[Rfam]
Rfam assigns this 130-nucleotide RNA sequence from Kalanchoe fedtschenkoi to the family "U11 spliceosomal RNA".
The match comes from Rfam's covariance-model search (67 bits).
The family has 72 seed sequences and 2,595 matches in Rfam 15.1.
Lineage of the source: Eukaryota > Viridiplantae > eudicotyledons > Gunneridae > Kalanchoe.
The family is grouped with related families in Rfam's "U1 clan".
On this family, see Montzka and Steitz, Proc Natl Acad Sci U S A 1988: "Additional low-abundance human small nuclear ribonucleoproteins: U11, U12, etc".

RNA sequence: UAAAAGGGUCGGUUGGCUAAUUAUGCCAUGCUCAUCCUAGUUCGGUGAGUGCUGUAUGGAUAUCAAGACAUAUGGCCGACAUAAUUUGUGGAACCUACCAUAGGGUUGGCUCGCUUAGCCGACCCUCCAU
Numbered sequence: 001u002a003a004a005a006g007g008g009u010c011g012g013u014u015g016g017c018u019a020a021u022u023a024u025g026c027c028a029u030g031c032u033c034a035u036c037c038u039a040g041u042u043c044g045g046u047g048a049g050u051g052c053u054g055u056a057u058g059g060a061u062a063u064c065a066a067g068a069c070a071u072a073u074g075g076c077c078g079a080c081a082u083a084a085u086u087u088g089u090g091g092a093a094c095c096u097a098c099c100a101u102a103g104g105g106u107u108g109g110c111u112c113g114c115u116u117a118g119c120c121g122a123c124c125c126u127c128c129a130u
Stems, first nucleotide, its partner, number of pairs: 008080005014028004029051008052075007100126001104124008